RNA: mir-8799 microRNA precursor family
Organism: Canis lupus
RNA sequence: CGGGGGAGGCCGGAUCCUGGGCUGAGUCCCGGCGCCCUGUGCCCCGGUCUGCGCUGUUGGAUUCGCUCCCGCCCGCAGCCCCCU
Number, nucleotide and partner (000 for none) at each position: 001c000002g083003g082004g081005g080006g079007a000008g000009g076010c075011c000012g074013g073014a000015u000016c000017c071018u000019g069020g068021g067022c000023u065024g064025a063026g062027u061028c060029c059030c056031g055032g054033c053034g052035c051036c000037c000038u000039g049040u000041g048042c047043c000044c000045c000046g000047g042048u041049c039050u000051g035052c034053g033054c032055u031056g030057u000058u000059g029060g028061a027062u026063u025064c024065g023066c000067u021068c020069c019070c000071g017072c000073c013074c012075g010076c009077a000078g000079c006080c005081c004082c003083c002084u000